Rfam assigns this 85-nucleotide RNA sequence from Streptococcus sp. zg-36 to the family "RNA anti-toxin A". Rfam 15.1 lists 190 matches to the family in 120 species.
[Rfam]
RNA sequence: UAAUGAAGAUAUAAAAGGAGCUGGACGGUAAUCCAACUCCCACGUAGAACCGUUUAAGACGGUGACUCGGUUUAACGAUUAAAGA
Numbered sequence: 001u002a003a004u005g006a007a008g009a010u011a012u013a014a015a016a017g018g019a020g021c022u023g024g025a026c027g028g029u030a031a032u033c034c035a036a037c038u039c040c041c042a043c044g045u046a047g048a049a050c051c052g053u054u055u056a057a058g059a060c061g062g063u064g065a066c067u068c069g070g071u072u073u074a075a076c077g078a079u080u081a082a083a084g085a
Stems, first nucleotide, its partner, number of pairs: 022035004049063006

It scores 65 bits against the family's covariance model. It is annotated as an antitoxin RNA. A reference for the family is Fozo et al. (2010), "Abundance of type I toxin-antitoxin systems in bacteria: searches for new candidates and discovery of novel families", Nucleic Acids Res. The organism belongs to Streptococcus, within Bacteria.